Bacillaceae-1 RNA: a 68-nucleotide RNA from Effusibacillus lacus. Pairs were carried over by alignment from the consensus structure, which is taken from published work. Rfam classes the family as a small RNA. NCBI's taxonomy places the organism under Bacteria, Bacilli, Caryophanales, Alicyclobacillaceae, Effusibacillus.
RNA sequence: GAUGAAGGAGGGCCGGCUAAGAGCGGUGACAUUCGUGUCACAAGGUCGGCCCGACGACAUCCUGUCGU
Dot-bracket structure: ..........(((((((........(((((......)))))...)))))))..(((((.....)))))